[Rfam]
RNA sequence: UCGAGGACGACCUCGAUUAACCAAAUCGAGGACGACCUCG
Numbered sequence: 001u002c003g004a005g006g007a008c009g010a011c012c013u014c015g016a017u018u019a020a021c022c023a024a025a026u027c028g029a030g031g032a033c034g035a036c037c038u039c040g
Base pairs, nucleotide, nucleotide: 001016002015003014004013005012006011027040028039029038030037031036
RNA: Guanidine-II riboswitch aptamer (mini-ykkC)